About this RNA: A member of the RNA family "GAIT element" from Sus scrofa, 70 nucleotides long. It is annotated as a cis-regulatory element. This family represents a cis-acting element in the 3'-UTR of the ceruloplasmin (Cp) gene called gamma interferon inhibitor of translation (GAIT). The GAIT element is involved in selective translational silencing of the Cp transcript. Ceruloplasmin (Cp) is a multifunctional, copper-containing glycoprotein produced by the liver and secreted into the plasma. As an acute-phase protein, its plasma concentration can double during multiple inflammatory conditions. The family has 8 seed sequences and 121 matches in Rfam 15.1. Rfam links the family to the GO term negative regulation of translation.
RNA sequence: AUAUGUGAAAGUGUUGAAUAGAAUACUUUGGAAUGGCUAUAAGCAUUUUUUAAAAAGACUGAAAACAUAU
Number, nucleotide and partner (000 for none) at each position: 001a070002u069003a068004u067005g066006u065007g000008a000009a000010a060011g059012u058013g000014u000015u000016g000017a000018a000019u000020a000021g000022a049023a048024u042025a000026c000027u000028u000029u039030g038031g037032a000033a000034u000035g000036g000037c031038u030039a029040u000041a000042a024043g000044c000045a000046u000047u000048u023049u022050u000051u000052a000053a000054a000055a000056a000057g000058a012059c011060u010061g000062a000063a000064a000065a006066c005067a004068u003069a002070u001